Notes:
Small nucleolar RNA SNORD60: an 85-nucleotide sequence from Merluccius polli. The organism belongs to Merluccius, within Eukaryota.
RNA sequence: UGCCAUUGAUGACACACUUUUAUUUCUGACACCUCGUAUGAGAGCUGCAAAUGCAGCCCCUGAUUCUACAAUUUACCUGAGGCUC
Numbered sequence: 001u002g003c004c005a006u007u008g009a010u011g012a013c014a015c016a017c018u019u020u021u022a023u024u025u026c027u028g029a030c031a032c033c034u035c036g037u038a039u040g041a042g043a044g045c046u047g048c049a050a051a052u053g054c055a056g057c058c059c060c061u062g063a064u065u066c067u068a069c070a071a072u073u074u075a076c077c078u079g080a081g082g083c084u085c
Stems, first nucleotide, its partner, number of pairs: 002083003044057005